Rfam assigns this 136-nucleotide RNA from Phaeomoniella chlamydospora to the family "tRNA".
RNA sequence: GGCGGUGUGGCCGAGUGGUUUAAGGCGGCAGAUUUAAGUCUUUUGUUUGUUAUAUACUUUCUCGAUAACGUAUAUCAGAAUAUAAGAAUUCUCUGCUAUCCGAGAGGAUGCAUGGGUUCGAACCCCAUCGCCGCCA
Dot-bracket structure: (((((((..(((...........))).(((((...........................................................)))))...............(((((.......)))))))))))).
Numbered sequence: 001g002g003c004g005g006u007g008u009g010g011c012c013g014a015g016u017g018g019u020u021u022a023a024g025g026c027g028g029c030a031g032a033u034u035u036a037a038g039u040c041u042u043u044u045g046u047u048u049g050u051u052a053u054a055u056a057c058u059u060u061c062u063c064g065a066u067a068a069c070g071u072a073u074a075u076c077a078g079a080a081u082a083u084a085a086g087a088a089u090u091c092u093c094u095g096c097u098a099u100c101c102g103a104g105a106g107g108a109u110g111c112a113u114g115g116g117u118u119c120g121a122a123c124c125c126c127a128u129c130g131c132c133g134c135c136a
Stems, first nucleotide, its partner, number of pairs: 001135007010026003028096005112128005
Background
It scores 47 bits against the family's covariance model. NCBI's taxonomy places the organism under Eukaryota, saccharomyceta, Chaetothyriomycetidae, Phaeomoniellaceae, Phaeomoniella.